[Rfam]
RNA sequence: GGCCCAAAUCUGAAGUAGAGCAGAUCAAUAGGAUCAGCUGACCAUACUAAUCUACUAUACUUCAAGCUUGUGCCC
Numbered sequence: 001g002g003c004c005c006a007a008a009u010c011u012g013a014a015g016u017a018g019a020g021c022a023g024a025u026c027a028a029u030a031g032g033a034u035c036a037g038c039u040g041a042c043c044a045u046a047c048u049a050a051u052c053u054a055c056u057a058u059a060c061u062u063c064a065a066g067c068u069u070g071u072g073c074c075c
Stems, first nucleotide, its partner, number of pairs: 001074003005070003009066001011064007019056002022053002025050001027048001029046002032043001034041002

The record is a 75-nucleotide RNA from Haemonchus placei, which matches "mir-5928 microRNA precursor family" in Rfam.